[Rfam]
RNA sequence: AGGCCAAAGGAUGAUUAUGGAUAAAUAUCUCACGACGGUCGUCUGAGGCACCUUUAGGUGUCGAUAUUGAUGUGAUAUUCCAUGUACUGAUGGUU
Number, nucleotide and partner (000 for none) at each position: 001a095002g094003g000004c092005c000006a000007a000008a000009g000010g000011a000012u000013g000014a000015u000016u000017a000018u000019g000020g000021a000022u000023a000024a000025a000026u000027a000028u000029c000030u000031c000032a000033c000034g000035a000036c000037g000038g000039u000040c000041g000042u000043c000044u000045g000046a000047g000048g000049c060050a059051c058052c000053u000054u000055u000056a000057g000058g051059u050060g049061u000062c000063g000064a000065u000066a000067u000068u000069g000070a000071u000072g000073u000074g000075a000076u000077a000078u000079u000080c000081c000082a000083u000084g000085u000086a000087c000088u000089g000090a000091u000092g004093g000094u002095u001
RNA: Small nucleolar RNA Z161/Z228
Organism: Striga asiatica